[Rfam]
RNA sequence: CCAGACGGUUGGACGGCCGCCGUUCCGGGCAACCGGGGCGGAGGAAAGUCCGGGCUCCACGGAAACACGGUGCCGGUUAACGACCGGCGGGGGCGACCCCAGGGACAGUGCCACAGAAAACAAACCGCCCGCGCGUGCAAACCCGCGGGCAAGGGUGAAACGGUGCGGUAAGAGCGCACCGCGCCUGCGGUAACGUAGGCGGCAGGGUAAACCCCACCGGGAGCAAGACCGAAUAGGGGUGGCCGGCGGCGUGAGCGAUCAUGGCCGCGGGGGUGUUUUCGACCCGUCACCCGGGUUGGUCGCGCGAGGCGCGCAGCAAUGCGCGUCCCAGACGAAUGGCCGUCCACCAUCCGCGAGGAUGCGGACAGAACCCGGCUUACAGACCGUCUGGCAUC
Numbered sequence: 001c002c003a004g005a006c007g008g009u010u011g012g013a014c015g016g017c018c019g020c021c022g023u024u025c026c027g028g029g030c031a032a033c034c035g036g037g038g039c040g041g042a043g044g045a046a047a048g049u050c051c052g053g054g055c056u057c058c059a060c061g062g063a064a065a066c067a068c069g070g071u072g073c074c075g076g077u078u079a080a081c082g083a084c085c086g087g088c089g090g091g092g093g094c095g096a097c098c099c100c101a102g103g104g105a106c107a108g109u110g111c112c113a114c115a116g117a118a119a120a121c122a123a124a125c126c127g128c129c130c131g132c133g134c135g136u137g138c139a140a141a142c143c144c145g146c147g148g149g150c151a152a153g154g155g156u157g158a159a160a161c162g163g164u165g166c167g168g169u170a171a172g173a174g175c176g177c178a179c180c181g182c183g184c185c186u187g188c189g190g191u192a193a194c195g196u197a198g199g200c201g202g203c204a205g206g207g208u209a210a211a212c213c214c215c216a217c218c219g220g221g222a223g224c225a226a227g228a229c230c231g232a233a234u235a236g237g238g239g240u241g242g243c244c245g246g247c248g249g250c251g252u253g254a255g256c257g258a259u260c261a262u263g264g265c266c267g268c269g270g271g272g273g274u275g276u277u278u279u280c281g282a283c284c285c286g287u288c289a290c291c292c293g294g295g296u297u298g299g300u301c302g303c304g305c306g307a308g309g310c311g312c313g314c315a316g317c318a319a320u321g322c323g324c325g326u327c328c329c330a331g332a333c334g335a336a337u338g339g340c341c342g343u344c345c346a347c348c349a350u351c352c353g354c355g356a357g358g359a360u361g362c363g364g365a366c367a368g369a370a371c372c373c374g375g376c377u378u379a380c381a382g383a384c385c386g387u388c389u390g391g392c393a394u395c
Stems, first nucleotide, its partner, number of pairs: 001391010011380001012344007020041009046378003050375005055223004064279002068219005073087005088102001089100004103214002108212002110208003125154002127150007135142001162180006181203001182201008227301004237292006271285004308327008

Description
Rfam assigns this 395-nucleotide RNA sequence from Acidiphilium rubrum to the family "Bacterial RNase P class A". The match comes from Rfam's covariance-model search (309 bits).